[Rfam]
RNA sequence: UCAUUGGCCAACGAUGGGGUCUGAAGGAAGCCAUAGGAAGUUAGAGGUACAUAACGUAAGUGAACCCAUAUGUGGCGUGAUUGGUGGGUAAGUGUCCGCAAUAGCACGAAGCCCGAUACUCAGACAAACCAAUUACGUGAAAGGGAUGGGAUCUCUAACAGGGACUGGU
Numbered sequence: 001u002c003a004u005u006g007g008c009c010a011a012c013g014a015u016g017g018g019g020u021c022u023g024a025a026g027g028a029a030g031c032c033a034u035a036g037g038a039a040g041u042u043a044g045a046g047g048u049a050c051a052u053a054a055c056g057u058a059a060g061u062g063a064a065c066c067c068a069u070a071u072g073u074g075g076c077g078u079g080a081u082u083g084g085u086g087g088g089u090a091a092g093u094g095u096c097c098g099c100a101a102u103a104g105c106a107c108g109a110a111g112c113c114c115g116a117u118a119c120u121c122a123g124a125c126a127a128a129c130c131a132a133u134u135a136c137g138u139g140a141a142a143g144g145g146a147u148g149g150g151a152u153c154u155c156u157a158a159c160a161g162g163g164a165c166u167g168g169u
Stems, first nucleotide, its partner, number of pairs: 001017006030169004042157006048150001050148003065145003069141001075138003079134007086114004092107004
RNA: Group II catalytic intron D1-D4-3
Organism: Photobacterium profundum